[Rfam]
RNA sequence: UUGCCCAUCUAAGACUGGCAGUGUCUUAAAUGGCCAAGAUAAAGGGGGAGAUCAAAAUCCUCACUCAAACCCAAAGCAACUGGACUAUCAGUGCUUUGGAUCCUGUCGUGAGAUACAGCU
Numbered sequence: 001u002u003g004c005c006c007a008u009c010u011a012a013g014a015c016u017g018g019c020a021g022u023g024u025c026u027u028a029a030a031u032g033g034c035c036a037a038g039a040u041a042a043a044g045g046g047g048g049a050g051a052u053c054a055a056a057a058u059c060c061u062c063a064c065u066c067a068a069a070c071c072c073a074a075a076g077c078a079a080c081u082g083g084a085c086u087a088u089c090a091g092u093g094c095u096u097u098g099g100a101u102c103c104u105g106u107c108g109u110g111a112g113a114u115a116c117a118g119c120u
Stems, first nucleotide, its partner, number of pairs: 002049001004047003008043001010041001016036002060112005071099007079092003083089002
RNA: Small nucleolar RNA SNORA26
Organism: Scyliorhinus torazame